[Rfam]
RNA: let-7 microRNA precursor family
RNA sequence: GCGAGGUGAGGUAGUAGGUUGUAUAGUUUGUGAAGGGAUAGAAUCCUAUUCAGGUGAUAACUAUACAGUCUAUUGCCUUCCUUGA
Numbered sequence: 001g002c003g004a005g006g007u008g009a010g011g012u013a014g015u016a017g018g019u020u021g022u023a024u025a026g027u028u029u030g031u032g033a034a035g036g037g038a039u040a041g042a043a044u045c046c047u048a049u050u051c052a053g054g055u056g057a058u059a060a061c062u063a064u065a066c067a068g069u070c071u072a073u074u075g076c077c078u079u080c081c082u083u084g085a
Base pairs, nucleotide, nucleotide: 002084003083004082005081006080008079009078010077011076012075013074014073015072016071017070018069019068020067021066022065023064024063025062026061027060034047035046036045037044049056